[Rfam]
RNA sequence: CACUUAUCCAGAAAGACGGAGGGAUUAGGCCCUGUGAUGUCUUAGCAACCCAAUUCAGUUGGGUGCUACUUCCUACCCAGUUCGCGUAGCGUGCUGGGGGAGAUGAGUG
Numbered sequence: 001c002a003c004u005u006a007u008c009c010a011g012a013a014a015g016a017c018g019g020a021g022g023g024a025u026u027a028g029g030c031c032c033u034g035u036g037a038u039g040u041c042u043u044a045g046c047a048a049c050c051c052a053a054u055u056c057a058g059u060u061g062g063g064u065g066c067u068a069c070u071u072c073c074u075a076c077c078c079a080g081u082u083c084g085c086g087u088a089g090c091g092u093g094c095u096g097g098g099g100g101a102g103a104u105g106a107g108u109g
Stems, first nucleotide, its partner, number of pairs: 001109008013043005021032003026075004044067004049063006071101001076098006
Rfam assigns this 109-nucleotide RNA from Rufibacter sp. DG15C to the family "SAM riboswitch aptamer (S box leader)". Pairs were carried over by alignment from the consensus structure, which is taken from published work.